Rfam assigns this 379-nucleotide sequence from Salicibibacter halophilus to the family "Bacterial RNase P class B". Rfam describes the family as follows. Ribonuclease P (RNase P) is a ubiquitous endoribonuclease, found in archaea, bacteria and eukarya as well as chloroplasts and mitochondria. Its best characterised activity is the generation of mature 5'-ends of tRNAs by cleaving the 5'-leader elements of precursor-tRNAs. Cellular RNase Ps are ribonucleoproteins. RNA from bacterial RNase Ps retains its catalytic activity in the absence of the protein subunit, i.e. it is a ribozyme. Isolated eukaryotic and archaeal RNase P RNA has not been shown to retain its catalytic function, but is still essential for the catalytic activity of the holoenzyme. Although the archaeal and eukaryotic holoenzyme s have a much greater protein content than the bacterial ones, the RNA cores from all the three lineages are homologous -- helices corresponding to P1, P2, P3, P4, and P10/11 are common to all cellular RNase P RNAs. Yet, there is considerable sequence variation, particularly among the eukaryotic RNAs. By type it is a ribozyme. It scores 290 bits against the family's covariance model. Its Rfam clan is "RNaseP clan".
[Rfam]
RNA sequence: ACGUUCGGGCAAUCGCUCUGUUCUUAUGGGACAGAGAGGAAAGUCCAUGCUCGCACAACCUUAAAGGGUUGUAACGAUCGUGCCUGACGAAACGAUAAGUCAGGGCAGUCCGGGUUCCCGGACUGACGGCGUAAGGAACACCUACGUUCUACCCAAGAAUACGGUUAUCCUUCUGAAAGUGCCACAGUGACGAAGUCUUCGUGGAAACGCGAAGAGUGGAACGCGGUAAACCCCGCGAGCGAGUAACCCAAAAAUAUGGUAGGGGCAUUUUCCCCGUUGGAAACGACAGGGAAAGGCGAAUGAUUCGCAGAUAGAUGAUUGCCAUCCCCGUGCAAGGUGAACAGCCGUAGCACGGCGAUACAGAACAUGGCUUACAGAA
Numbered sequence: 001a002c003g004u005u006c007g008g009g010c011a012a013u014c015g016c017u018c019u020g021u022u023c024u025u026a027u028g029g030g031a032c033a034g035a036g037a038g039g040a041a042a043g044u045c046c047a048u049g050c051u052c053g054c055a056c057a058a059c060c061u062u063a064a065a066g067g068g069u070u071g072u073a074a075c076g077a078u079c080g081u082g083c084c085u086g087a088c089g090a091a092a093c094g095a096u097a098a099g100u101c102a103g104g105g106c107a108g109u110c111c112g113g114g115u116u117c118c119c120g121g122a123c124u125g126a127c128g129g130c131g132u133a134a135g136g137a138a139c140a141c142c143u144a145c146g147u148u149c150u151a152c153c154c155a156a157g158a159a160u161a162c163g164g165u166u167a168u169c170c171u172u173c174u175g176a177a178a179g180u181g182c183c184a185c186a187g188u189g190a191c192g193a194a195g196u197c198u199u200c201g202u203g204g205a206a207a208c209g210c211g212a213a214g215a216g217u218g219g220a221a222c223g224c225g226g227u228a229a230a231c232c233c234c235g236c237g238a239g240c241g242a243g244u245a246a247c248c249c250a251a252a253a254a255u256a257u258g259g260u261a262g263g264g265g266c267a268u269u270u271u272c273c274c275c276g277u278u279g280g281a282a283a284c285g286a287c288a289g290g291g292a293a294a295g296g297c298g299a300a301u302g303a304u305u306c307g308c309a310g311a312u313a314g315a316u317g318a319u320u321g322c323c324a325u326c327c328c329c330g331u332g333c334a335a336g337g338u339g340a341a342c343a344g345c346c347g348u349a350g351c352a353c354g355g356c357g358a359u360a361c362a363g364a365a366c367a368u369g370g371c372u373u374a375c376a377g378a379a
Stems, first nucleotide, its partner, number of pairs: 004379003007375001008323007016036006041373003045370005050243005055072006078238005083104006105127001106125008128233002131173001133171001140165003146160005179231002181227003196215008247264003268295007296308005325358002328355006